[Rfam]
RNA sequence: AGUGCAUGUGAUGAACCAAAAUGGGACGUAAUUCUGAAUAUUGUGUUGAUUCAUUUUUCUGAUGCAC
Numbered sequence: 001a002g003u004g005c006a007u008g009u010g011a012u013g014a015a016c017c018a019a020a021a022u023g024g025g026a027c028g029u030a031a032u033u034c035u036g037a038a039u040a041u042u043g044u045g046u047u048g049a050u051u052c053a054u055u056u057u058u059c060u061g062a063u064g065c066a067c
Stems, first nucleotide, its partner, number of pairs: 002067005
Rfam assigns this 67-nucleotide RNA sequence from Candidula unifasciata to the family "Small nucleolar RNA SNORD82". A reference for the family is Galardi et al. (2002), "Purified box C/D snoRNPs are able to reproduce site-specific 2'-O-methylation of target RNA in vitro", Mol Cell Biol. Rfam's curators write: snoRNA U82 or Z25 is found in both humans and mice.